[Rfam]
RNA sequence: UUAUAAGCCAAAAUCAACUUUUUAGAUUCAUUCAAUAAAUGAUGUAUUUGGUCUAUAUUACUGAUCAAAUGCAUCAUUUAUUAAAUGAACCUAAAAAAUUGAUUUUUGCUUAUAA
Numbered sequence: 001u002u003a004u005a006a007g008c009c010a011a012a013a014u015c016a017a018c019u020u021u022u023u024a025g026a027u028u029c030a031u032u033c034a035a036u037a038a039a040u041g042a043u044g045u046a047u048u049u050g051g052u053c054u055a056u057a058u059u060a061c062u063g064a065u066c067a068a069a070u071g072c073a074u075c076a077u078u079u080a081u082u083a084a085a086u087g088a089a090c091c092u093a094a095a096a097a098a099u100u101g102a103u104u105u106u107u108g109c110u111u112a113u114a115a
Base pairs, nucleotide, nucleotide: 002114003113004112005111006110007109010106011105012104013103015101016100017099019097020096021095022094023093024092025091027089028088029087030086031085032084034082035081036080037079038078039077040076041075042074043073044072049067050066051065052064
RNA: MIR2593 microRNA precursor family
Organism: Medicago truncatula